The record is a 163-nucleotide RNA from Mus musculus, which matches "Wolbachia sRNA 46" in Rfam. Taxonomically the source falls in Mus (Eukaryota, Opisthokonta, Tetrapoda, Myomorpha). The family has 3 seed sequences and 237 matches in Rfam 15.1. Rfam classes the family as a small RNA. The literature on the family includes a 2014 paper in Proc Natl Acad Sci U S A by Mayoral et al., "Wolbachia small noncoding RNAs and their role in cross-kingdom communications".
RNA sequence: GUCACAUCCUGCCUACUGUGGUUGGCACCAUUCCCUACGCUGGGAUCUAGGAUUGAAUAUAAAGGAGAAAGAUGCACAAGCAGUCAUCUCUCUCUAUUUCAUAGGUAACUAUACAAUCCUAGAUCCCAGCGUAGGGAAUGGUGCCAACCACAGUAGGCAGGUC
Numbered sequence: 001g002u003c004a005c006a007u008c009c010u011g012c013c014u015a016c017u018g019u020g021g022u023u024g025g026c027a028c029c030a031u032u033c034c035c036u037a038c039g040c041u042g043g044g045a046u047c048u049a050g051g052a053u054u055g056a057a058u059a060u061a062a063a064g065g066a067g068a069a070a071g072a073u074g075c076a077c078a079a080g081c082a083g084u085c086a087u088c089u090c091u092c093u094c095u096a097u098u099u100c101a102u103a104g105g106u107a108a109c110u111a112u113a114c115a116a117u118c119c120u121a122g123a124u125c126c127c128a129g130c131g132u133a134g135g136g137a138a139u140g141g142u143g144c145c146a147a148c149c150a151c152a153g154u155a156g157g158c159a160g161g162u163c
Stems, first nucleotide, its partner, number of pairs: 011158005020149036